[Rfam]
RNA sequence: GGGUGACUCCUUGGCGCUUGCGCGCUGUUUUGAUGAAGAUUCGCACCUCUAUCAAAACGGGUAACCCAACCUCUUGGCAAGGCCUUACUGUCAGAUCAAGUCUGAACUUCUACACCUAAGUGGGGGCCGUGUCCGGAGUUACGGGGGCAACUCCAGUCAUGUUCUCGGUUCCUCUGUCGGCAUUAUCUCCGGCUCAGGUCUCGGUCG
Numbered sequence: 001g002g003g004u005g006a007c008u009c010c011u012u013g014g015c016g017c018u019u020g021c022g023c024g025c026u027g028u029u030u031u032g033a034u035g036a037a038g039a040u041u042c043g044c045a046c047c048u049c050u051a052u053c054a055a056a057a058c059g060g061g062u063a064a065c066c067c068a069a070c071c072u073c074u075u076g077g078c079a080a081g082g083c084c085u086u087a088c089u090g091u092c093a094g095a096u097c098a099a100g101u102c103u104g105a106a107c108u109u110c111u112a113c114a115c116c117u118a119a120g121u122g123g124g125g126g127c128c129g130u131g132u133c134c135g136g137a138g139u140u141a142c143g144g145g146g147g148c149a150a151c152u153c154c155a156g157u158c159a160u161g162u163u164c165u166c167g168g169u170u171c172c173u174c175u176g177u178c179g180g181c182a183u184u185a186u187c188u189c190c191g192g193c194u195c196a197g198g199u200c201u202c203g204g205u206c207g
Stems, first nucleotide, its partner, number of pairs: 001067004006062002009060002014025004027058009037048002069205002075159003081153002085150002090107002092104005109146003114140001171198003176193003179189001